RNA: tRNA
Organism: Paraoerskovia marina
RNA sequence: GCCCUCGUAGCUCAGUGGAUAGAGCGUCCGCCUCCGGAGCGGAAGGUCGUAGGUUCGAAUCCUAUCGAGGGCA
Numbered sequence: 001g002c003c004c005u006c007g008u009a010g011c012u013c014a015g016u017g018g019a020u021a022g023a024g025c026g027u028c029c030g031c032c033u034c035c036g037g038a039g040c041g042g043a044a045g046g047u048c049g050u051a052g053g054u055u056c057g058a059a060u061c062c063u064a065u066c067g068a069g070g071g072c073a
Stems, first nucleotide, its partner, number of pairs: 001072007010025004027043005049065005